[Rfam]
RNA sequence: UUGCUAUGAUGACUGAAGGACAUGGUUUCGUUUUAUAUUCUGAAAGUUAAUGAUUACACUUUCCUUGGCUGUCUGAGCAA
Numbered sequence: 001u002u003g004c005u006a007u008g009a010u011g012a013c014u015g016a017a018g019g020a021c022a023u024g025g026u027u028u029c030g031u032u033u034u035a036u037a038u039u040c041u042g043a044a045a046g047u048u049a050a051u052g053a054u055u056a057c058a059c060u061u062u063c064c065u066u067g068g069c070u071g072u073c074u075g076a077g078c079a080a
Stems, first nucleotide, its partner, number of pairs: 001080004
The record is an 80-nucleotide RNA sequence from Mizuhopecten yessoensis, which matches "Small nucleolar RNA SNORD53/SNORD92" in Rfam.
It is annotated as a C/D-box small nucleolar RNA.
The source organism's lineage runs through Eukaryota, Bivalvia, Autobranchia, Pectinidae and Mizuhopecten.
A reference for the family is Kiss-Laszlo et al. (1996), "Site-specific ribose methylation of preribosomal RNA: a novel function for small nucleolar RNAs", Cell.
The family is grouped with related families in Rfam's "SNORD52 clan".
Rfam links the family to the GO terms RNA processing and nucleolus.
It scores 59 bits against the family's covariance model.